The family of this 275-nucleotide sequence from Nannospalax galili is "Mason-Pfizer monkey virus packaging signal". The base pairs follow the family's consensus structure, which was predicted with PFOLD. Rfam's curators write: This family represents a group of sequences that are related to the Mason-Pfizer monkey virus (MPMV) packaging signal. The packaging signal is located in the 5' UTR and is required for specific RNA encapsidation. The family's RNA type in Rfam is cis-regulatory element.
[Rfam]
RNA sequence: UGGCGCCCAACAUGGGGCUUGGAUACUGGGGGACAACAUGAGGGUCCGACGACAGAAGAAAAAGGGGUGCGCACCCACUCAAAUAAUUCGGAGACGCCGUGGGAGCCUGCUGCGGCUGAGCUGAUGGUAAGUUAGUUGUUCAAUCAUGGGGCAAGAAUUAAGUCAGCAUCAGAUUUCUGUGAUACAGUUAAGAGAAGCUCUACAGGCAAGAGGAGUAAAGGUUAAAACUGAGGAUUUAUUUCAUUUCUUUGAUUUUGUAAAGGACAUUUGUCCCU
Number, nucleotide and partner (000 for none) at each position: 001u000002g000003g000004c000005g000006c031007c030008c029009a000010a000011c000012a000013u025014g024015g000016g000017g000018c000019u000020u000021g000022g000023a000024u014025a013026c000027u000028g000029g008030g007031g006032g000033a000034c000035a000036a000037c051038a000039u049040g000041a000042g000043g000044g000045u000046c000047c000048g000049a039050c000051g037052a000053c000054a000055g000056a000057a000058g000059a000060a000061a000062a000063a000064g000065g000066g000067g000068u000069g000070c000071g000072c000073a000074c000075c000076c000077a000078c000079u000080c000081a000082a000083a000084u000085a128086a000087u126088u124089c123090g000091g000092a000093g000094a000095c118096g000097c000098c114099g113100u112101g111102g110103g000104a000105g000106c000107c000108u000109g000110c102111u101112g100113c099114g098115g000116c000117u000118g095119a000120g000121c000122u000123g089124a088125u000126g087127g000128u085129a000130a000131g000132u000133u154134a000135g152136u151137u000138g000139u150140u149141c148142a147143a000144u000145c000146a000147u142148g141149g140150g139151g136152c135153a000154a133155g000156a000157a000158u000159u202160a201161a000162g198163u197164c000165a000166g000167c000168a000169u000170c000171a000172g000173a000174u000175u000176u000177c000178u000179g000180u000181g000182a000183u000184a000185c000186a000187g000188u000189u000190a000191a000192g000193a000194g000195a000196a000197g163198c162199u000200c000201u160202a159203c000204a000205g000206g000207c000208a000209a000210g250211a249212g248213g247214a246215g245216u000217a000218a000219a237220g236221g235222u234223u233224a000225a000226a000227a000228c000229u000230g000231a000232g000233g223234a222235u221236u220237u219238a000239u000240u000241u000242c000243a000244u000245u215246u214247c213248u212249u211250u210251g000252a000253u000254u000255u000256u000257g000258u000259a000260a275261a000262g273263g272264a271265c270266a000267u000268u000269u000270g265271u264272c263273c262274c000275u260
A search with the family's covariance model found it, with a score of 156 bits.